[Rfam]
RNA sequence: CUACAGCCCGACUUGAGUGGAAAUCCUUUUUGAUUUUUUUCAAAAAAAAAAUAAAAAGAUUGGGAACGGAAGGCGGAUGAAGC
Numbered sequence: 001c002u003a004c005a006g007c008c009c010g011a012c013u014u015g016a017g018u019g020g021a022a023a024u025c026c027u028u029u030u031u032g033a034u035u036u037u038u039u040u041c042a043a044a045a046a047a048a049a050a051a052u053a054a055a056a057a058g059a060u061u062g063g064g065a066a067c068g069g070a071a072g073g074c075g076g077a078u079g080a081a082g083c
Stems, first nucleotide, its partner, number of pairs: 009075002012072002017067002022061004028056005034051006
Dot-bracket structure: ........((.((...((...((((..(((((.((((((......))))))))))).))))....))...)).))........

This 83-nucleotide RNA from Halpernia frigidisoli belongs to the Rfam family "Flavo-1 RNA".
NCBI's taxonomy places the organism under Bacteria, Bacteroidota, Flavobacteriia, Weeksellaceae, Halpernia.
The match comes from Rfam's covariance-model search (43 bits).